[Rfam]
RNA sequence: UAUUAAAAAAUUCAUCUAUUUGUAUUAUUAAAAACUGACGAGGUUGUAGGAAUAACUAGAUAUUGACACGUGGUAUGUCAUGUGUACCUCAUGCUGAUAAACAGUAAUCAGUUUUUAAUAGUUGAAAUGGAUUGAAUUUUUAACA
Numbered sequence: 001u002a003u004u005a006a007a008a009a010a011u012u013c014a015u016c017u018a019u020u021u022g023u024a025u026u027a028u029u030a031a032a033a034a035c036u037g038a039c040g041a042g043g044u045u046g047u048a049g050g051a052a053u054a055a056c057u058a059g060a061u062a063u064u065g066a067c068a069c070g071u072g073g074u075a076u077g078u079c080a081u082g083u084g085u086a087c088c089u090c091a092u093g094c095u096g097a098u099a100a101a102c103a104g105u106a107a108u109c110a111g112u113u114u115u116u117a118a119u120a121g122u123u124g125a126a127a128u129g130g131a132u133u134g135a136a137u138u139u140u141u142a143a144c145a
Stems, first nucleotide, its partner, number of pairs: 003143007011135002014132003018128004024122003028118006